[Rfam]
Rfam assigns this 68-nucleotide RNA from Bacillus infantis to the family "Bacillaceae-1 RNA". The base pairs follow the family's consensus structure, which is taken from published work. Lineage of the source: Bacteria > Bacillota > Bacilli > Caryophanales > Bacillus infantis.

Nucleotides: 068
Base pairs, nucleotide, nucleotide: 013047014046015045017043025039026038027037028036029035055068056067057066
Number, partner (000 for none) and nucleotide at each position: 001000c002000c003000u004000u005000a006000a007000g008000g009000a010000a011000c012000c013047c014046a015045g016000c017043c018000u019000a020000a021000u022000a023000a024000c025039g026038c027037c028036a029035c030000g031000u032000c033000c034000u035029g036028u037027g038026g039025c040000a041000a042000c043017g044000c045015c046014u047013g048000c049000a050000u051000g052000a053000c054000a055068c056067c057066c058000a059000u060000c061000c062000c063000c064000g065000g066057g067056g068055g